[Rfam]
RNA: Flavo-1 RNA
RNA sequence: CCGCGCUAAGGAUGGACGUGGAAAUCCUUUUUUGGGAGCGGCCCAAAAAAGAUUGCAGCCACAGCCUGACCAAGC
Numbered sequence: 001c002c003g004c005g006c007u008a009a010g011g012a013u014g015g016a017c018g019u020g021g022a023a024a025u026c027c028u029u030u031u032u033u034g035g036g037a038g039c040g041g042c043c044c045a046a047a048a049a050a051g052a053u054u055g056c057a058g059c060c061a062c063a064g065c066c067u068g069a070c071c072a073a074g075c
Stems, first nucleotide, its partner, number of pairs: 009067003013063002018059002023054004029049008